Rfam assigns this 92-nucleotide RNA sequence from Palleronia aestuarii to the family "Glycine riboswitch aptamer". Taxonomically the source falls in Palleronia (Bacteria, Pseudomonadati, Pseudomonadota, Rhodobacterales). Pairs were carried over by alignment from the consensus structure.
RNA sequence: GGGGGAGCGACGGGAGAAUCCGGGCCUCGUGCCCGGUGCCGAAGGAGCAUCCGCCCCGGUAAACUCUCAGGCAACCGGACCGUCGCUCGGGA
Numbered sequence: 001g002g003g004g005g006a007g008c009g010a011c012g013g014g015a016g017a018a019u020c021c022g023g024g025c026c027u028c029g030u031g032c033c034c035g036g037u038g039c040c041g042a043a044g045g046a047g048c049a050u051c052c053g054c055c056c057c058g059g060u061a062a063a064c065u066c067u068c069a070g071g072c073a074a075c076c077g078g079a080c081c082g083u084c085g086c087u088c089g090g091g092a
Base pairs, nucleotide, nucleotide: 006087007086008085009084010083011082012081013080020036021035022034023033038072039071040070041068042067045066046065047064051059052058